Background
This 287-nucleotide RNA from Rutstroemia sp. NJR-2017a WRK4 belongs to the Rfam family "Group I catalytic intron". The family's consensus secondary structure is taken from published work. Rfam's curators write: Group I catalytic introns are large self-splicing ribozymes. Gene Ontology term of the family: Group I intron splicing. On this family, see Cate et al., Science 1996: "Crystal structure of a group I ribozyme domain: principles of RNA packing".
RNA sequence: AUUCUAUGGUCUUACAUGGCCAAAACUGUAGUGAACCUAUGGUUAUAAAUCAUCAAAUUGUGGGAAAUCCCUAAAGGAAUCUUAACCAAGUAAGUAUGGUAACAUAACUUAUGGCACAGGUAAUGACUCGUGGUAUGGUAAAAUCAAGAUAUAUUAUUCAAUGGGCAAUCCGCAGCCAAGUGCCAAGUAUAUAAUAUUUGGUAUGCAGUUCAUCGACUAGACGGUGGUUGGUAUUAUUAAUAUUAGUAAUGCUUAAGAUAUAGUCAGCCCCCACCUGAAAAGGUGCA
Numbered sequence: 001a002u003u004c005u006a007u008g009g010u011c012u013u014a015c016a017u018g019g020c021c022a023a024a025a026c027u028g029u030a031g032u033g034a035a036c037c038u039a040u041g042g043u044u045a046u047a048a049a050u051c052a053u054c055a056a057a058u059u060g061u062g063g064g065a066a067a068u069c070c071c072u073a074a075a076g077g078a079a080u081c082u083u084a085a086c087c088a089a090g091u092a093a094g095u096a097u098g099g100u101a102a103c104a105u106a107a108c109u110u111a112u113g114g115c116a117c118a119g120g121u122a123a124u125g126a127c128u129c130g131u132g133g134u135a136u137g138g139u140a141a142a143a144u145c146a147a148g149a150u151a152u153a154u155u156a157u158u159c160a161a162u163g164g165g166c167a168a169u170c171c172g173c174a175g176c177c178a179a180g181u182g183c184c185a186a187g188u189a190u191a192u193a194a195u196a197u198u199u200g201g202u203a204u205g206c207a208g209u210u211c212a213u214c215g216a217c218u219a220g221a222c223g224g225u226g227g228u229u230g231g232u233a234u235u236a237u238u239a240a241u242a243u244u245a246g247u248a249a250u251g252c253u254u255a256a257g258a259u260a261u262a263g264u265c266a267g268c269c270c271c272c273a274c275c276u277g278a279a280a281a282g283g284u285g286c287a
Stems, first nucleotide, its partner, number of pairs: 001007002048229005054223001059174006069165003175209002180204004191198001213266001215265005231252009272285005